[Rfam]
RNA sequence: AAUGCAGGUUGCAAUUACAGCGCUUCUUGAUGGUGGGGGCGCUGUCAUUAUCCUGCAGAAAGUAAAGCUGUCGGCUGCCUUGCUGGUUUUUCUCUCAUCCGGGGAGAUUCCUUCAAUGCUGACAGCUACAAGU
Numbered sequence: 001a002a003u004g005c006a007g008g009u010u011g012c013a014a015u016u017a018c019a020g021c022g023c024u025u026c027u028u029g030a031u032g033g034u035g036g037g038g039g040c041g042c043u044g045u046c047a048u049u050a051u052c053c054u055g056c057a058g059a060a061a062g063u064a065a066a067g068c069u070g071u072c073g074g075c076u077g078c079c080u081u082g083c084u085g086g087u088u089u090u091u092c093u094c095u096c097a098u099c100c101g102g103g104g105a106g107a108u109u110c111c112u113u114c115a116a117u118g119c120u121g122a123c124a125g126c127u128a129c130a131a132g133u
Base pairs, nucleotide, nucleotide: 003057004056005055006054007053008052018044019043020042021041022040023039024038025037026036066127067126068125069124070123071122072121073120074119075118085110086109088107089106090105091104092103093102094101
This 133-nucleotide RNA sequence from Eleutherodactylus coqui belongs to the Rfam family "Small nucleolar RNA SNORA69".
By type it is an H/ACA-box small nucleolar RNA.
The match comes from Rfam's covariance-model search (77 bits).
The organism belongs to Eleutherodactylus, within Eukaryota.
Pairs were carried over by alignment from the consensus structure, which was predicted with PFOLD.
Rfam's curators write: U69 is a member of the H/ACA class of small nucleolar RNAs (snoRNAs) which act as guides in the the modification of uridines to pseudouridines.